[Rfam]
Nucleotides: 067
Base pairs, nucleotide, nucleotide: 001067002066003065004064005063006062007061008060009059010058011057012056015054016053017052021042022041023040024039025038026037027036028035029034
Number, partner (000 for none) and nucleotide at each position: 001067a002066a003065c004064g005063u006062c007061c008060u009059g010058c011057a012056u013000c014000u015054c016053c017052c018000g019000a020000a021042g022041c023040c024039u025038u026037a027036c028035g029034u030000u031000c032000c033000u034029a035028c036027g037026u038025g039024g040023g041022g042021u043000c044000c045000u046000u047000u048000a049000g050000u051000a052017g053016g054015g055000a056012g057011u058010g059009u060008g061007g062006g063005a064004c065003g066002u067001u